Overview
A member of the RNA family "MIR398 microRNA precursor family" from Coptis chinensis, 89 nucleotides long.
RNA sequence: UGGAGUUCAACAGGGGUAACAUGAGAACACACGAGAGAGUCUAACACUUGACUGUUCAUGUGUUCUCAGGUCGCCCCUGCUGAAUCUUC
Numbered sequence: 001u002g003g004a005g006u007u008c009a010a011c012a013g014g015g016g017u018a019a020c021a022u023g024a025g026a027a028c029a030c031a032c033g034a035g036a037g038a039g040u041c042u043a044a045c046a047c048u049u050g051a052c053u054g055u056u057c058a059u060g061u062g063u064u065c066u067c068a069g070g071u072c073g074c075c076c077c078u079g080c081u082g083a084a085u086c087u088u089c
Base pairs, nucleotide, nucleotide: 007083008082011079012078013077014076016074017073019071023067024066025065026064027063028062029061030060031059
Dot-bracket structure: ......((..((((.((.(...(((((((((...........................)))))))))...).)).))))..))......
The source organism's lineage runs through Eukaryota, Viridiplantae, Magnoliopsida, Coptidoideae and Coptis. Pairs were carried over by alignment from the consensus structure, which was predicted with WAR.